[Rfam]
RNA sequence: AGUAGAGUAGACAAAAGGCGUUAAGUGUUGGGGGAUGGGAAGUUGCCUCCAAACGAAGAGAAAGAGGCUCGCUAUCUUUUGUCGCAUCCGCUGCU
Numbered sequence: 001a002g003u004a005g006a007g008u009a010g011a012c013a014a015a016a017g018g019c020g021u022u023a024a025g026u027g028u029u030g031g032g033g034g035a036u037g038g039g040a041a042g043u044u045g046c047c048u049c050c051a052a053a054c055g056a057a058g059a060g061a062a063a064g065a066g067g068c069u070c071g072c073u074a075u076c077u078u079u080u081g082u083c084g085c086a087u088c089c090g091c092u093g094c095u
Stems, first nucleotide, its partner, number of pairs: 001095005010083009020072002025054002028052007038089003042085001058070003
Dot-bracket structure: (((((....(((((((((.((...((.(((((((...[[[.[...)))))))))...(((.......)))))..))))))))).].]]].)))))
Shown here is a 95-nucleotide sequence from Aedoeadaptatus ivorii, a member of the family "THF (Tetrahydrofolate) riboswitch aptamer". Rfam's curators write: Tetrahydrofolate (THF) riboswitch was first reported for Ames et al. as an RNA motif in 5' untranslated (5'-UTR)regions of folate transport and biosynthesis genes in Firmicutes genomes. It scores 75 bits against the family's covariance model. A reference for the family is Ames et al. (2010), "A eubacterial riboswitch class that senses the coenzyme tetrahydrofolate", Chem Biol.